c-di-AMP riboswitch aptamer (ydaO/yuaA leader): a 130-nucleotide RNA sequence from Desulforamulus hydrothermalis. The match comes from Rfam's covariance-model search (97 bits). Pairs were carried over by alignment from the consensus structure.
[Rfam]
RNA sequence: UAAAUAAAAACGCCUAAUUUCUUGUGAAAACGGGGGAACCGAUCUUUUGGGGUGAACUACCGUCAGGCAGCGGGCUAACUUUCAGUCCGAACCCGUCAGCUAACUCCGUAGGCGUAGAAAGUGGGGAAGG
Numbered sequence: 001u002a003a004a005u006a007a008a009a010a011c012g013c014c015u016a017a018u019u020u021c022u023u024g025u026g027a028a029a030a031c032g033g034g035g036g037a038a039c040c041g042a043u044c045u046u047u048u049g050g051g052g053u054g055a056a057c058u059a060c061c062g063u064c065a066g067g068c069a070g071c072g073g074g075c076u077a078a079c080u081u082u083c084a085g086u087c088c089g090a091a092c093c094c095g096u097c098a099g100c101u102a103a104c105u106c107c108g109u110a111g112g113c114g115u116a117g118a119a120a121g122u123g124g125g126g127a128a129g130g
Stems, first nucleotide, its partner, number of pairs: 011114004018029003030109006040049002050094003058069001060067002072088004